Notes:
This 252-nucleotide RNA sequence from Trifolium subterraneum belongs to the Rfam family "MIR2655 microRNA precursor family". The family has 25 seed sequences and 892 matches in Rfam 15.1.
[Rfam]
RNA sequence: CCCUUAUCUUUUAAAAGUUUCAAGUUGGUCCCUUAUCUUUAUUUUAGGUUUCAAGUUGGUCCCUUCCGUCAAAUUUUUAACUAUUUCCGUUAAAUUUGGACACAUGUCAAACUAAUUUGGACACGUGGCACACUUGGAAAGAUGACACAUGUCCAAAUUUAACGGUAACAGUAAAAAAAUUGACGGAAGAGACCAACUUGAAAUCUAAAAAAAAGAUAAGGGACCAACUUGAAACUUUUAAAAGAUAAUGGA
Numbered sequence: 001c002c003c004u005u006a007u008c009u010u011u012u013a014a015a016a017g018u019u020u021c022a023a024g025u026u027g028g029u030c031c032c033u034u035a036u037c038u039u040u041a042u043u044u045u046a047g048g049u050u051u052c053a054a055g056u057u058g059g060u061c062c063c064u065u066c067c068g069u070c071a072a073a074u075u076u077u078u079a080a081c082u083a084u085u086u087c088c089g090u091u092a093a094a095u096u097u098g099g100a101c102a103c104a105u106g107u108c109a110a111a112c113u114a115a116u117u118u119g120g121a122c123a124c125g126u127g128g129c130a131c132a133c134u135u136g137g138a139a140a141g142a143u144g145a146c147a148c149a150u151g152u153c154c155a156a157a158u159u160u161a162a163c164g165g166u167a168a169c170a171g172u173a174a175a176a177a178a179a180u181u182g183a184c185g186g187a188a189g190a191g192a193c194c195a196a197c198u199u200g201a202a203a204u205c206u207a208a209a210a211a212a213a214a215g216a217u218a219a220g221g222g223a224c225c226a227a228c229u230u231g232a233a234a235c236u237u238u239u240a241a242a243a244g245a246u247a248a249u250g251g252a
Base pairs, nucleotide, nucleotide: 002250004248005247006246007245008244023229024228025227027225028224029223031221032220033219034218035217036216037215038214039213040212042210043209045207046206047205
It scores 130 bits against the family's covariance model.